[Rfam]
RNA sequence: AAACGACUUGCGGGAGAGGUCGGCGUAGGGCGCCGGCGCCGAAGGAGCAACCGCCCCGGAAACUCUCAGGCAAAAGGACCGCCGGUCGAGC
Numbered sequence: 001a002a003a004c005g006a007c008u009u010g011c012g013g014g015a016g017a018g019g020u021c022g023g024c025g026u027a028g029g030g031c032g033c034c035g036g037c038g039c040c041g042a043a044g045g046a047g048c049a050a051c052c053g054c055c056c057c058g059g060a061a062a063c064u065c066u067c068a069g070g071c072a073a074a075a076g077g078a079c080c081g082c083c084g085g086u087c088g089a090g091c
Base pairs, nucleotide, nucleotide: 006086007085008084010082011081012080013079020036021035022034023033038071039070040069041067042066045065046064047063051059052058